[Rfam]
c-di-AMP riboswitch aptamer (ydaO/yuaA leader): a 166-nucleotide RNA sequence from Paenalicyclobacillus macrosporangiidus. Taxonomically the source falls in Paenalicyclobacillus (Bacteria, Bacillota, Caryophanales, Alicyclobacillaceae).
RNA sequence: CAUCCAUAUCAGCCGAAUCUCCGGCGCCUGCGCGUCGGAGUACGGGGGAUGCCAUACAGGGGAUUUCCCUUGGGGUGAAUCGUGCGGGGUGGACGCUCACCGCGCGCGAGGGGCGGCUCGUGCCCCAACCCGACAACUAACCCCGGAGGCAGACGAGAGGUGAUGG
Dot-bracket structure: ...........(((....(((((((((....)))))))))..(((((.....((................))(((.....((((((................))))))..((((.......))))...))).........)))))..)))................
Numbered sequence: 001c002a003u004c005c006a007u008a009u010c011a012g013c014c015g016a017a018u019c020u021c022c023g024g025c026g027c028c029u030g031c032g033c034g035u036c037g038g039a040g041u042a043c044g045g046g047g048g049a050u051g052c053c054a055u056a057c058a059g060g061g062g063a064u065u066u067c068c069c070u071u072g073g074g075g076u077g078a079a080u081c082g083u084g085c086g087g088g089g090u091g092g093a094c095g096c097u098c099a100c101c102g103c104g105c106g107c108g109a110g111g112g113g114c115g116g117c118u119c120g121u122g123c124c125c126c127a128a129c130c131c132g133a134c135a136a137c138u139a140a141c142c143c144c145g146g147a148g149g150c151a152g153a154c155g156a157g158a159g160g161u162g163a164u165g166g
Stems, first nucleotide, its partner, number of pairs: 012150003019040009043145005053072002073131003081108006111125004